A member of the RNA family "ZMP/ZTP riboswitch aptamer (pfl RNA motif)" from Devosia crocina, 84 nucleotides long. Rfam 15.1 lists 3,295 matches to the family in 2,545 species. Pairs were carried over by alignment from the consensus structure, which is taken from published work. Lineage of the source: Bacteria > Pseudomonadati > Hyphomicrobiales > Devosiaceae > Devosia.
RNA sequence: GCCUGUUCGCGCGACUGGCGAGAAAAGGUGGGGAACCACCGGGAAACGCGAACAUCAUGAGAGCCGCUCGCCUGGGCACCCAUC
Numbered sequence: 001g002c003c004u005g006u007u008c009g010c011g012c013g014a015c016u017g018g019c020g021a022g023a024a025a026a027g028g029u030g031g032g033g034a035a036c037c038a039c040c041g042g043g044a045a046a047c048g049c050g051a052a053c054a055u056c057a058u059g060a061g062a063g064c065c066g067c068u069c070g071c072c073u074g075g076g077c078a079c080c081c082a083u084c
Stems, first nucleotide, its partner, number of pairs: 004054008015043002017072005028039004061079001063077003